Shown here is a 95-nucleotide sequence from Desulfitobacterium dichloroeliminans, a member of the family "c-di-GMP-I riboswitch aptamer". Taxonomically the source falls in Desulfitobacterium dichloroeliminans (Bacteria, Bacillota, Eubacteriales, Desulfitobacterium). The match comes from Rfam's covariance-model search (71 bits).
RNA sequence: AUGCGACAAGGGCAAAACUGUUUAAAAGCAGUGACGCAAAGCCACAGGGUCUAAGGGGCUACUUGCAGUAGUACUAUGACAGCCUGGCUACCGAA
Numbered sequence: 001a002u003g004c005g006a007c008a009a010g011g012g013c014a015a016a017a018c019u020g021u022u023u024a025a026a027a028g029c030a031g032u033g034a035c036g037c038a039a040a041g042c043c044a045c046a047g048g049g050u051c052u053a054a055g056g057g058g059c060u061a062c063u064u065g066c067a068g069u070a071g072u073a074c075u076a077u078g079a080c081a082g083c084c085u086g087g088c089u090a091c092c093g094a095a
Stems, first nucleotide, its partner, number of pairs: 012037002017032006040089004046085003049080003056074001058072005